[Rfam]
Overview
TPP riboswitch aptamer (THI element): a 96-nucleotide sequence from Lichenicola cladoniae. Lineage of the source: Bacteria > Pseudomonadota > Alphaproteobacteria > Acetobacterales > Lichenicola.

RNA sequence: GCCGCAUGACCGGGGUGCCCACCAACGUGGGCUGAGAUCAAACCCGUCGAACCUGAUCUGGGUCAUUCCAGCGAAGGGAGGCAUGUCGAUGCACCA
Numbered sequence: 001g002c003c004g005c006a007u008g009a010c011c012g013g014g015g016u017g018c019c020c021a022c023c024a025a026c027g028u029g030g031g032c033u034g035a036g037a038u039c040a041a042a043c044c045c046g047u048c049g050a051a052c053c054u055g056a057u058c059u060g061g062g063u064c065a066u067u068c069c070a071g072c073g074a075a076g077g078g079a080g081g082c083a084u085g086u087c088g089a090u091g092c093a094c095c096a
Stems, first nucleotide, its partner, number of pairs: 006084003010080001011046004016040001017032005052077003058071004

Background:
The family's consensus secondary structure is taken from published work.